[Rfam]
RNA sequence: AAUCUAAGAAGAGGCGCAGCUGACAUUAGUAGCCAUCAUGAGUUGAUAAAGCGACUUUGAUUGAAGGUGAAAGGGGAUGCCUGCCGAAACGACCGUUUCCUUUAUGAGACGAGGUUGUUGGGUUCUAGCUUAACAGGCUAGAGACUGUCGUGGUUAAUUCCACGGAGUGCUUUGUGAUCA
Number, nucleotide and partner (000 for none) at each position: 001a000002a000003u000004c000005u000006a175007a000008g173009a172010a171011g170012a000013g000014g000015c000016g084017c083018a082019g081020c000021u079022g000023a000024c075025a000026u000027u000028a000029g000030u000031a000032g068033c067034c066035a000036u064037c063038a062039u000040g000041a000042g000043u000044u000045g000046a000047u000048a000049a000050a000051g000052c000053g000054a000055c000056u000057u000058u000059g000060a000061u000062u038063g037064a036065a000066g034067g033068u032069g000070a000071a000072a000073g000074g000075g024076g000077a000078u000079g021080c000081c019082u018083g017084c016085c000086g000087a000088a119089a118090c117091g116092a115093c114094c113095g000096u111097u000098u109099c108100c000101u000102u000103u000104a000105u000106g000107a000108g099109a098110c000111g096112a000113g094114g093115u092116u091117g090118u089119u088120g146121g145122g000123u143124u142125c141126u140127a139128g138129c137130u136131u000132a000133a000134c000135a000136g130137g129138c128139u127140a126141g125142a124143g123144a000145c121146u120147g000148u165149c164150g163151u162152g161153g160154u000155u000156a000157a000158u000159u000160c153161c152162a151163c150164g149165g148166a000167g000168u000169g000170c011171u010172u009173u008174g000175u006176g000177a000178u000179c000180a000
Rfam assigns this 180-nucleotide sequence from Apilactobacillus kunkeei to the family "Lysine riboswitch aptamer". Lineage of the source: Bacteria > Bacillati > Bacilli > Lactobacillaceae > Apilactobacillus.